[Rfam]
RNA sequence: UCUUCAUUCUUCACACUAUCUCACCAGUCAGUAAGACGAGAGAGUGUGUGAAAUGAAGAGA
Numbered sequence: 001u002c003u004u005c006a007u008u009c010u011u012c013a014c015a016c017u018a019u020c021u022c023a024c025c026a027g028u029c030a031g032u033a034a035g036a037c038g039a040g041a042g043a044g045u046g047u048g049u050g051a052a053a054u055g056a057a058g059a060g061a
Base pairs, nucleotide, nucleotide: 001059002058003057004056005055006054007053010050012048013047014046015045016044017043019041020040021039022038
Shown here is a 61-nucleotide sequence from Pristionchus pacificus, a member of the family "mir-8364 microRNA precursor family".